About this RNA
The family of this 99-nucleotide RNA sequence from Monilinia fructigena is "Small nucleolar RNA Z13/snr52". Gene Ontology terms of the family: RNA processing and nucleolus.
[Rfam]
RNA sequence: UGACAUUAUAUGAUGAAAAUAUUCGGAUGUUAAAUCAUUAUAUUCCGAGAGCGCAAAACCGUGUGGAGAUUUUCCGUUGCCUUCCUUCUGAUGUCUGUA
Numbered sequence: 001u002g003a004c005a006u007u008a009u010a011u012g013a014u015g016a017a018a019a020u021a022u023u024c025g026g027a028u029g030u031u032a033a034a035u036c037a038u039u040a041u042a043u044u045c046c047g048a049g050a051g052c053g054c055a056a057a058a059c060c061g062u063g064u065g066g067a068g069a070u071u072u073u074c075c076g077u078u079g080c081c082u083u084c085c086u087u088c089u090g091a092u093g094u095c096u097g098u099a
Stems, first nucleotide, its partner, number of pairs: 003098003024076004
By type it is a C/D-box small nucleolar RNA. Lineage of the source: Eukaryota > Opisthokonta > Ascomycota > Pezizomycotina > Monilinia.